[Rfam]
RNA sequence: AGUGGGGGGAGGGGGUCCCUCAGCCCAGAUUGCGAGAGGGCGCAGGCCAGGCUGAGGGACCCCACUGGUGCAUG
Numbered sequence: 001a002g003u004g005g006g007g008g009g010a011g012g013g014g015g016u017c018c019c020u021c022a023g024c025c026c027a028g029a030u031u032g033c034g035a036g037a038g039g040g041c042g043c044a045g046g047c048c049a050g051g052c053u054g055a056g057g058g059a060c061c062c063c064a065c066u067g068g069u070g071c072a073u074g
Stems, first nucleotide, its partner, number of pairs: 003072002006069001009066001012063014028047001030045005

Rfam assigns this 74-nucleotide RNA sequence from Myotis lucifugus to the family "mir-9193 microRNA precursor family". Rfam links the family to the GO terms RISC complex and miRNA-mediated post-transcriptional gene silencing. The base pairs follow the family's consensus structure, which was predicted with RNAalifold.